[Rfam]
RNA sequence: AGUGAACUUUGUUUGCAGUGAAAAUCCUUUUUUGUUUUUAAAAUAAAAAAAAAAAGAUUGCAACGAAUAGCGGGAAAUAGC
Numbered sequence: 001a002g003u004g005a006a007c008u009u010u011g012u013u014u015g016c017a018g019u020g021a022a023a024a025u026c027c028u029u030u031u032u033u034g035u036u037u038u039u040a041a042a043a044u045a046a047a048a049a050a051a052a053a054a055a056g057a058u059u060g061c062a063a064c065g066a067a068u069a070g071c072g073g074g075a076a077a078u079a080g081c
Stems, first nucleotide, its partner, number of pairs: 009073003013069001018064002023059004029054005035049006
Dot-bracket structure: ........(((.(....((...((((..(((((.((((((...))))))))))).))))...))....).)))........
Rfam assigns this 81-nucleotide sequence from Flavobacterium sp. GT3R68 to the family "Flavo-1 RNA". It is annotated as a small RNA. It scores 53 bits against the family's covariance model.